[Rfam]
Shown here is an 83-nucleotide RNA sequence from Synaphobranchus kaupii, a member of the family "Small nucleolar RNA SNORD100".
RNA sequence: UGCAUCUGUGAUGACAUUCUGGCUCCCUCUACUGAACCAAGUGAGGAUAACCGCCAUCGUUACCCAAAUAUUUCUGAGAUCCA
Dot-bracket structure: ((.(((.......................................................................))).))

NCBI's taxonomy places the organism under Eukaryota, Bilateria, Deuterostomia, Elopocephalai, Synaphobranchus. For this family Rfam cites "RNomics: an experimental approach that identifies 201 candidates for novel, small, non-messenger RNAs in mouse" (Huttenhofer et al., EMBO J, 2001). It is annotated as a C/D-box small nucleolar RNA.